[Rfam]
RNA sequence: UGUGACACCCAUAAAGGGGGUAAUUCCCAGUCUAUGAGCUAUUUUACCAUAUUCCAAAUUC
Numbered sequence: 001u002g003u004g005a006c007a008c009c010c011a012u013a014a015a016g017g018g019g020g021u022a023a024u025u026c027c028c029a030g031u032c033u034a035u036g037a038g039c040u041a042u043u044u045u046a047c048c049a050u051a052u053u054c055c056a057a058a059u060u061c
Base pairs, nucleotide, nucleotide: 017045018044019043020042021041022040024038025037026036
RNA: Plastid-psbN 5UTR RNA